[Rfam]
RNA sequence: ACUGGAUGGUUUGGCAGCCAUUUGUAACUUCUGCUUCUGGAAGGGUCAGCAAUGGGGAGUCUCGUACAUUUGACCUUUCAAUCGGUUGAUGUUGAGUUCAGUCCCGUGAAGCAGAAUGUCUACAUAGCUAUCGUUGCGUAAGCAAUGGUAACUAGGUGGGUUAAGAGGGGGGAACCGCAUGAGGCUGGCAACAGAGCAGUGCAAACCUCCCGCAUUCUUGCAGUCUUCGGGACAGCUGAAUUUGACUUUGUCUUGGUUCGGUUGAUUUGGAUCGUUGGCGACCCAUUGCUAU
Numbered sequence: 001a002c003u004g005g006a007u008g009g010u011u012u013g014g015c016a017g018c019c020a021u022u023u024g025u026a027a028c029u030u031c032u033g034c035u036u037c038u039g040g041a042a043g044g045g046u047c048a049g050c051a052a053u054g055g056g057g058a059g060u061c062u063c064g065u066a067c068a069u070u071u072g073a074c075c076u077u078u079c080a081a082u083c084g085g086u087u088g089a090u091g092u093u094g095a096g097u098u099c100a101g102u103c104c105c106g107u108g109a110a111g112c113a114g115a116a117u118g119u120c121u122a123c124a125u126a127g128c129u130a131u132c133g134u135u136g137c138g139u140a141a142g143c144a145a146u147g148g149u150a151a152c153u154a155g156g157u158g159g160g161u162u163a164a165g166a167g168g169g170g171g172g173a174a175c176c177g178c179a180u181g182a183g184g185c186u187g188g189c190a191a192c193a194g195a196g197c198a199g200u201g202c203a204a205a206c207c208u209c210c211c212g213c214a215u216u217c218u219u220g221c222a223g224u225c226u227u228c229g230g231g232a233c234a235g236c237u238g239a240a241u242u243u244g245a246c247u248u249u250g251u252c253u254u255g256g257u258u259c260g261g262u263u264g265a266u267u268u269g270g271a272u273c274g275u276u277g278g279c280g281a282c283c284c285a286u287u288g289c290u291a292u
Stems, first nucleotide, its partner, number of pairs: 001046003004023008028043003048290009063280003066275002070271002073268001078265008089254001091252001095242008103231002106227001108225002111221002113218007120159004125154003129150009161165001167210005177202004185194003
The record is a 292-nucleotide RNA sequence from Conidiobolus coronatus, which matches "Metazoan signal recognition particle RNA" in Rfam. It is annotated as a non-coding RNA gene. Clan: SRP clan. About the family: The signal recognition particle (SRP) is a universally conserved ribonucleoprotein. It is involved in the co-translational targeting of proteins to membranes. The eukaryotic SRP consists of a 300-nucleotide 7S RNA and six proteins: SRPs 72, 68, 54, 19, 14, and 9. Archaeal SRP consists of a 7S RNA and homologues of the eukaryotic SRP19 and SRP54 proteins. Lineage of the source: Eukaryota > Opisthokonta > Entomophthoromycota > Conidiobolaceae > Conidiobolus coronatus. For this family Rfam cites "Structural and energetic analysis of RNA recognition by a universally conserved protein from the signal recognition particle" (Batey et al., J Mol Biol, 2001).